[Rfam]
RNA sequence: AUUUACCUUCGGGGCCGGGUGAAAUUCCCGACCGGCGGUGAUUCCGCGCUUGGCGUCGGCCGACAUGCAAGUUCCGGCCGCGAUGCGAGGCGGCGGAUCAGUCCGUGACCCGCGACGAGCGUGAACGCAUCAUGCCGCGUCCGUCCGGUGGACCCGGUGCAACUCCGGGACCGACAGUAUAGUCUGGAUGGGAGAAGGGAUCG
Numbered sequence: 001a002u003u004u005a006c007c008u009u010c011g012g013g014g015c016c017g018g019g020u021g022a023a024a025u026u027c028c029c030g031a032c033c034g035g036c037g038g039u040g041a042u043u044c045c046g047c048g049c050u051u052g053g054c055g056u057c058g059g060c061c062g063a064c065a066u067g068c069a070a071g072u073u074c075c076g077g078c079c080g081c082g083a084u085g086c087g088a089g090g091c092g093g094c095g096g097a098u099c100a101g102u103c104c105g106u107g108a109c110c111c112g113c114g115a116c117g118a119g120c121g122u123g124a125a126c127g128c129a130u131c132a133u134g135c136c137g138c139g140u141c142c143g144u145c146c147g148g149u150g151g152a153c154c155c156g157g158u159g160c161a162a163c164u165c166c167g168g169g170a171c172c173g174a175c176a177g178u179a180u181a182g183u184c185u186g187g188a189u190g191g192g193a194g195a196a197g198g199g200a201u202c203g
Stems, first nucleotide, its partner, number of pairs: 004200001006198005017029003031183002033173002035106004110148002153169005175186003